Nucleotides: 086
Stems, first nucleotide, its partner, number of pairs: 001086002004083002006080001008078004013060003022054008037072002039068005
Number, partner (000 for none) and nucleotide at each position: 001086g002085c003000c004083g005082g006080a007000g008078c009077g010076g011075g012000a013060c014059g015058c016000a017000a018000g019000g020000a021000c022054u023053c024052u025051c026050u027049u028048c029047g030000u031000g032000c033000a034000a035000u036000u037072g038071g039068u040067c041066g042065c043064c044000c045000u046000g047029c048028g049027a050026a051025g052024a053023g054022a055000c056000g057000a058015g059014c060013g061000a062000g063000u064043g065042g066041c067040g068039a069000a070000a071038c072037c073000u074000c075011c076010c077009c078008g079000a080006u081000g082005c083004c084000c085002g086001u